Annotation
Shown here is an 80-nucleotide RNA sequence from Punica granatum, a member of the family "Small nucleolar RNA R160". snoR160 is a C/D box small nucleolar RNA, which acts as a methylation guide for 25S ribosomal RNA in plants. snoR160 has been alternatively named snoZ270 in rice. The organism belongs to Punica, within Eukaryota. On this family, see Chen et al., Nucleic Acids Res 2003: "The high diversity of snoRNAs in plants: identification and comparative study of 120 snoRNA genes from Oryza sativa".
RNA sequence: AGUAAAGAUGAUGAGGCUCUUAUAUCUGAAAAUGAUGUGGAAUCACAUAUCAUAAAGGUCUUCAAAGUUCUCUGAUUGCU
Numbered sequence: 001a002g003u004a005a006a007g008a009u010g011a012u013g014a015g016g017c018u019c020u021u022a023u024a025u026c027u028g029a030a031a032a033u034g035a036u037g038u039g040g041a042a043u044c045a046c047a048u049a050u051c052a053u054a055a056a057g058g059u060c061u062u063c064a065a066a067g068u069u070c071u072c073u074g075a076u077u078g079c080u
Stems, first nucleotide, its partner, number of pairs: 001080005